[Rfam]
RNA sequence: UCACUGCUGUGUCUUAUGGCUUUCUAUUCCUAUGUGAUUUUUCUCUGGCAUGUCACAUAGGGUCUAAAGCCAUUGGGUGCAGAGUGGG
Numbered sequence: 001u002c003a004c005u006g007c008u009g010u011g012u013c014u015u016a017u018g019g020c021u022u023u024c025u026a027u028u029c030c031u032a033u034g035u036g037a038u039u040u041u042u043c044u045c046u047g048g049c050a051u052g053u054c055a056c057a058u059a060g061g062g063u064c065u066a067a068a069g070c071c072a073u074u075g076g077g078u079g080c081a082g083a084g085u086g087g088g
Stems, first nucleotide, its partner, number of pairs: 002087001005084001007082008016073008028062010
Dot-bracket structure: .(..(.((((((((.((((((((....((((((((((...............))))))))))...)))))))).)))))))).)..).
RNA: mir-135 microRNA precursor family